pan motif: a 145-nucleotide sequence from Fontibacillus panacisegetis. Lineage of the source: Bacteria > Bacillati > Bacilli > Caryophanales > Fontibacillus. It is annotated as a cis-regulatory element.
RNA sequence: GAGGCGGUAUCUGAUACUUUGAGCUGCACUCUAUGUGGAUGAUGUUAUUUAUACGCGUUAUUUGUGUGAUGUCCCCCGGUCAGUUAUAGUAAUUGACCGGUGACGUUGGAUUCUGCUCUGAGCCGAAGAGGACCGAGACAGAAGG
Numbered sequence: 001g002a003g004g005c006g007g008u009a010u011c012u013g014a015u016a017c018u019u020u021g022a023g024c025u026g027c028a029c030u031c032u033a034u035g036u037g038g039a040u041g042a043u044g045u046u047a048u049u050u051a052u053a054c055g056c057g058u059u060a061u062u063u064g065u066g067u068g069a070u071g072u073c074c075c076c077c078g079g080u081c082a083g084u085u086a087u088a089g090u091a092a093u094u095g096a097c098c099g100g101u102g103a104c105g106u107u108g109g110a111u112u113c114u115g116c117u118c119u120g121a122g123c124c125g126a127a128g129a130g131g132a133c134c135g136a137g138a139c140a141g142a143a144g145g
Stems, first nucleotide, its partner, number of pairs: 001031003004027005010022002113141003116137003120133001123131002